[Rfam]
RNA sequence: CGACCCCGUGCGGGAGAGUCCGGCUCUGGCGCGGCCAGGACCGGCGCCGAAGGAGCAACUCUCCCCGACAACCUCUCAGGCCACCUGGACCGCACGGGCGAG
Numbered sequence: 001c002g003a004c005c006c007c008g009u010g011c012g013g014g015a016g017a018g019u020c021c022g023g024c025u026c027u028g029g030c031g032c033g034g035c036c037a038g039g040a041c042c043g044g045c046g047c048c049g050a051a052g053g054a055g056c057a058a059c060u061c062u063c064c065c066c067g068a069c070a071a072c073c074u075c076u077c078a079g080g081c082c083a084c085c086u087g088g089a090c091c092g093c094a095c096g097g098g099c100g101a102g
Base pairs, nucleotide, nucleotide: 006097007096008095009094010093011092012091013090020044021043022042023041046081047080048079049077050076053075054074055073060068061067
This 102-nucleotide RNA from Saccharopolyspora rhizosphaerae belongs to the Rfam family "Glycine riboswitch aptamer". Its Rfam clan is "Glycine riboswitch clan". NCBI's taxonomy places the organism under Bacteria, Bacillati, Actinomycetota, Pseudonocardiaceae, Saccharopolyspora. A search with the family's covariance model found it, with a score of 62 bits. Pairs were carried over by alignment from the consensus structure.